Overview:
Glycine riboswitch aptamer: a 91-nucleotide sequence from Parvularcula mediterranea. Lineage of the source: Bacteria > Pseudomonadota > Alphaproteobacteria > Parvularculales > Parvularcula. The pairing is the family consensus, mapped onto this sequence. Rfam describes the family as follows. This family represents the bacterial glycine riboswitch. Glycine riboswitches usually consist of two metabolite-binding aptamers domains with similar structures in tandem. The aptamers cooperatively bind glycine to regulate the expression of downstream genes. The match comes from Rfam's covariance-model search (50 bits).
RNA sequence: CGCCCCUCAGCGGGAGACGUCCUGAGAGAUCAGGAGGCCGAAGGCGCAACCACCCCGGAAACGCUCAGGCACAAGGGACCGCCAAGGGGAU
Numbered sequence: 001c002g003c004c005c006c007u008c009a010g011c012g013g014g015a016g017a018c019g020u021c022c023u024g025a026g027a028g029a030u031c032a033g034g035a036g037g038c039c040g041a042a043g044g045c046g047c048a049a050c051c052a053c054c055c056c057g058g059a060a061a062c063g064c065u066c067a068g069g070c071a072c073a074a075g076g077g078a079c080c081g082c083c084a085a086g087g088g089g090a091u
Stems, first nucleotide, its partner, number of pairs: 006086002010082004020035004037070003040066002044064003050058002